[Rfam]
The record is a 126-nucleotide RNA sequence from Hemibagrus wyckioides, which matches "Small nucleolar RNA ACA64" in Rfam. On this family, see Schattner et al., RNA 2006: "A computational screen for mammalian pseudouridylation guide H/ACA RNAs". The source organism's lineage runs through Eukaryota, Actinopterygii, Actinopteri, Siluroidei and Hemibagrus. Gene Ontology terms of the family: nucleolus and RNA processing. By type it is an H/ACA-box small nucleolar RNA.

RNA sequence: ACAAUCUGAAAAUUACCUCCAGCACGUGUAUUGCAGUGGGUGAGAUAUUUGUGCCUACAGAAAAGAGGUCCAUUAAGCUUAUUGCCUGCUCUCUAGUUGUGCAAUGAAACCCAUGUGCCUACAUUA
Numbered sequence: 001a002c003a004a005u006c007u008g009a010a011a012a013u014u015a016c017c018u019c020c021a022g023c024a025c026g027u028g029u030a031u032u033g034c035a036g037u038g039g040g041u042g043a044g045a046u047a048u049u050u051g052u053g054c055c056u057a058c059a060g061a062a063a064a065g066a067g068g069u070c071c072a073u074u075a076a077g078c079u080u081a082u083u084g085c086c087u088g089c090u091c092u093c094u095a096g097u098u099g100u101g102c103a104a105u106g107a108a109a110c111c112c113a114u115g116u117g118c119c120u121a122c123a124u125u126a
Stems, first nucleotide, its partner, number of pairs: 006051001008049002010046001013043004022034003067119001069117001071115003079107005088097002